[Rfam]
Rfam assigns this 97-nucleotide sequence from Coptotermes formosanus to the family "mir-210 microRNA precursor family".

RNA sequence: GAUUUCCUUACCACAGCUACUGGACACUGCUCAAGAUAAGUCAUGUAAAACUCUUGUGCGUGUGACAUUAGCUGUGGUUGGGACUCUCUUCAUCUAU
Numbered sequence: 001g002a003u004u005u006c007c008u009u010a011c012c013a014c015a016g017c018u019a020c021u022g023g024a025c026a027c028u029g030c031u032c033a034a035g036a037u038a039a040g041u042c043a044u045g046u047a048a049a050a051c052u053c054u055u056g057u058g059c060g061u062g063u064g065a066c067a068u069u070a071g072c073u074g075u076g077g078u079u080g081g082g083a084c085u086c087u088c089u090u091c092a093u094c095u096a097u
Stems, first nucleotide, its partner, number of pairs: 005083004010078003015073005021067002025062002028060003032056002035053002

Background:
For this family Rfam cites "Kaposi's sarcoma-associated herpesvirus expresses an array of viral microRNAs in latently infected cells" (Cai et al., Proc Natl Acad Sci U S A, 2005). Pairs were carried over by alignment from the consensus structure, which was predicted with WAR. It scores 54 bits against the family's covariance model. Lineage of the source: Eukaryota > Bilateria > Pterygota > Blattodea > Coptotermes.